[Rfam]
RNA: EcpR1
RNA sequence: ACCCCUACGGUUCUCCUCAGGUCCGCCGCAACUCCUGGGUCCGUAGGGAGGCUGGUUCGCAGCGGGCAAGAGUGGCCUCUUCGACAUGCCGCAGCGGACCAGCCGCUUC
Numbered sequence: 001a002c003c004c005c006u007a008c009g010g011u012u013c014u015c016c017u018c019a020g021g022u023c024c025g026c027c028g029c030a031a032c033u034c035c036u037g038g039g040u041c042c043g044u045a046g047g048g049a050g051g052c053u054g055g056u057u058c059g060c061a062g063c064g065g066g067c068a069a070g071a072g073u074g075g076c077c078u079c080u081u082c083g084a085c086a087u088g089c090c091g092c093a094g095c096g097g098a099c100c101a102g103c104c105g106c107u108u109c
Stems, first nucleotide, its partner, number of pairs: 003048008016039006050104011